[Rfam]
RNA sequence: GGAGGUUUACUGGCCCUCCAGAGUCGCUCUGCGGGGAGAGGCUCUAAACCACCCCGAGCUGCAUUGGCUGAAGACCGUUGUGGUGAACGUCGCGGGAAAAGGCACGGCUCGACCGUGUCAGGU
Numbered sequence: 001g002g003a004g005g006u007u008u009a010c011u012g013g014c015c016c017u018c019c020a021g022a023g024u025c026g027c028u029c030u031g032c033g034g035g036g037a038g039a040g041g042c043u044c045u046a047a048a049c050c051a052c053c054c055c056g057a058g059c060u061g062c063a064u065u066g067g068c069u070g071a072a073g074a075c076c077g078u079u080g081u082g083g084u085g086a087a088c089g090u091c092g093c094g095g096g097a098a099a100a101g102g103c104a105c106g107g108c109u110c111g112a113c114c115g116u117g118u119c120a121g122g123u
Base pairs, nucleotide, nucleotide: 001019002018003017004016005015020045021044022043023042024041025040027038028037029036030035050122052095053094055092056091057090058084059083061081062080063079065077066076067075101119102118103117104116105115106114
RNA: Group II catalytic intron D1-D4-2
Organism: Sinosporangium album